[Rfam]
Nucleotides: 062
Stems, first nucleotide, its partner, number of pairs: 012059001013026004027045003031041003046058003
Number, partner (000 for none) and nucleotide at each position: 001000a002000u003000a004000a005000u006000g007000a008000g009000a010000c011000u012059u013026c014025c015024g016023c017000c018000u019000g020000c021000g022000g023016g024015c025014g026013g027045c028044u029043c030000g031041g032040u033039g034000a035000g036000a037000a038000c039033c040032a041031c042000g043029g044028a045027g046058g047057g048056g049000u050000c051000a052000g053000a054000u055000u056048c057047c058046c059012a060000u061000g062000g
A member of the RNA family "pemK RNA", 62 nucleotides long. The family's consensus secondary structure is taken from published work. By type it is a cis-regulatory element.